[Rfam]
RNA sequence: GCUGUUCUGGACCUACUGGCACCACAGGCUCGGCCACUCUGCUGCGCCUGUGACAUCAGGACAAAGAGCAAGUGGCUAUUUCUGUGCUCAGUGUUCAGAAGCCAGUGAGCACUAAGAAGAGUUUACAGCCUGACAUUU
Numbered sequence: 001g002c003u004g005u006u007c008u009g010g011a012c013c014u015a016c017u018g019g020c021a022c023c024a025c026a027g028g029c030u031c032g033g034c035c036a037c038u039c040u041g042c043u044g045c046g047c048c049u050g051u052g053a054c055a056u057c058a059g060g061a062c063a064a065a066g067a068g069c070a071a072g073u074g075g076c077u078a079u080u081u082c083u084g085u086g087c088u089c090a091g092u093g094u095u096c097a098g099a100a101g102c103c104a105g106u107g108a109g110c111a112c113u114a115a116g117a118a119g120a121g122u123u124u125a126c127a128g129c130c131u132g133a134c135a136u137u138u
Base pairs, nucleotide, nucleotide: 003063004062005061006060007059008058009057010056024051025050026049027048074130075129076128082121083120087116088115092111093110094109095108096107097106
RNA: Small nucleolar RNA SNORA43
Organism: Castor canadensis